RNA sequence: UCCGGUCCGCGCAACUGGCGCUUGAAGAUGGAUCACCAUCGGGAAACGCGGACCGCGACAUCAAUCUCGCGAACCGCCGCGCGCCUGGGUAUUGCUG
Numbered sequence: 001u002c003c004g005g006u007c008c009g010c011g012c013a014a015c016u017g018g019c020g021c022u023u024g025a026a027g028a029u030g031g032a033u034c035a036c037c038a039u040c041g042g043g044a045a046a047c048g049c050g051g052a053c054c055g056c057g058a059c060a061u062c063a064a065u066c067u068c069g070c071g072a073a074c075c076g077c078c079g080c081g082c083g084c085c086u087g088g089g090u091a092u093u094g095c096u097g
Base pairs, nucleotide, nucleotide: 003055004054005053006052007051008050009049010048011047015043016042017085018084019083020082021081028039029038030037031036076090077089078088

ZMP/ZTP riboswitch aptamer (pfl RNA motif): a 97-nucleotide sequence from Paraburkholderia phenazinium. Gene Ontology terms of the family: one-carbon metabolic process and regulation of purine nucleotide biosynthetic process. NCBI's taxonomy places the organism under Bacteria, Pseudomonadati, Pseudomonadota, Betaproteobacteria, Paraburkholderia. The match comes from Rfam's covariance-model search (53 bits).